[Rfam]
Nucleotides: 110
Base pairs, nucleotide, nucleotide: 003108006105008103009102010101011100013085014084015083022079023078024077025076026075027074028073029072040097041096042093043092044091045090046089
Number, partner (000 for none) and nucleotide at each position: 001000g002000c003108g004000a005000g006105u007000a008103g009102g010101g011100g012000a013085c014084g015083c016000a017000g018000u019000g020000a021000u022079c023078c024077u025076c026075g027074g028073g029072c030000c031000g032000u033000c034000u035000a036000c037000a038000a039000c040097g041096g042093u043092c044091g045090c046089c047000u048000c049000g050000c051000c052000a053000g054000u055000g056000g057000a058000a059000g060000c061000u062000u063000c064000g065000c066000c067000g068000g069000c070000a071000g072029g073028c074027c075026c076025g077024a078023g079022g080000g081000g082000a083015g084014c085013g086000a087000g088000u089046g090045g091044c092043g093042a094000g095000a096041c097040c098000g099000a100011c101010c102009c103008c104000a105006g106000g107000a108003c109000c110000g
The family of this 110-nucleotide RNA is "c-di-GMP-II-GAG riboswitch aptamer". On this family, see Weinberg et al., Proc Natl Acad Sci U S A 2017: "Bioinformatic analysis of riboswitch structures uncovers variant classes with altered ligand specificity". Rfam's curators put it in the seed alignment. The base pairs follow the family's consensus structure, which is taken from published work.